RNA sequence: CGCCGAGUCCUGUCCGCCGGUGGGGCAGUCAUGGAAAAACGGACAGGAGUGGGGGACCCACCUUCGGACCGGUCAGCCGGUCCUCGGGGUGAAGCCGCAUCAGCGGCCGGGCAACUUCCGCCCGAACCCGACAGCUCACCUCACAGGCGUGGGAAGGA
Number, nucleotide and partner (000 for none) at each position: 001c149002g148003c147004c146005g000006a000007g000008u048009c047010c046011u045012g044013u043014c042015c041016g040017c000018c000019g000020g000021u000022g000023g000024g000025g000026c000027a000028g000029u000030c000031a000032u000033g000034g000035a000036a000037a000038a000039a000040c016041g015042g014043a013044c012045a011046g010047g009048a008049g144050u143051g142052g141053g140054g139055g000056a000057c000058c000059c086060a000061c000062c000063u000064u000065c000066g000067g000068a000069c000070c000071g000072g000073u000074c000075a000076g000077c000078c000079g000080g000081u000082c000083c000084u000085c000086g059087g129088g128089g127090u000091g000092a000093a000094g000095c106096c105097g104098c103099a000100u000101c000102a000103g098104c097105g096106g095107c000108c000109g123110g122111g121112c120113a000114a000115c000116u000117u000118c000119c000120g112121c111122c110123c109124g000125a000126a000127c089128c088129c087130g000131a000132c000133a000134g000135c000136u000137c000138a000139c054140c053141u052142c051143a050144c049145a000146g004147g003148c002149g001150u000151g000152g000153g000154a000155a000156g000157g000158a000

Rfam assigns this 158-nucleotide RNA from Terrabacter aerolatus to the family "c-di-AMP riboswitch aptamer (ydaO/yuaA leader)". It scores 65 bits against the family's covariance model.